Annotation
This 154-nucleotide sequence from Amborella trichopoda belongs to the Rfam family "MIR8565 microRNA precursor family". The organism belongs to Amborella, within Eukaryota. The match comes from Rfam's covariance-model search (144 bits).

RNA sequence: CCCACACACAUGUGUGUAGGAUCUCAAAAGAUCACCAUUAAAUUUGAUACAGAUCUCUAAAAAAGUUAUCACAUAGGUGUGAUAUUUGACUUUUUUAGAGAUCCGUAUCAAAUUUAAUGGCGAUCUUUUGAAAUCCUAUACACAUGGGUGCGGG
Numbered sequence: 001c002c003c004a005c006a007c008a009c010a011u012g013u014g015u016g017u018a019g020g021a022u023c024u025c026a027a028a029a030g031a032u033c034a035c036c037a038u039u040a041a042a043u044u045u046g047a048u049a050c051a052g053a054u055c056u057c058u059a060a061a062a063a064a065g066u067u068a069u070c071a072c073a074u075a076g077g078u079g080u081g082a083u084a085u086u087u088g089a090c091u092u093u094u095u096u097a098g099a100g101a102u103c104c105g106u107a108u109c110a111a112a113u114u115u116a117a118u119g120g121c122g123a124u125c126u127u128u129u130g131a132a133a134u135c136c137u138a139u140a141c142a143c144a145u146g147g148g149u150g151c152g153g154g
Stems, first nucleotide, its partner, number of pairs: 002153002005150003009146005015140008024131005030125003035120016052103017069082005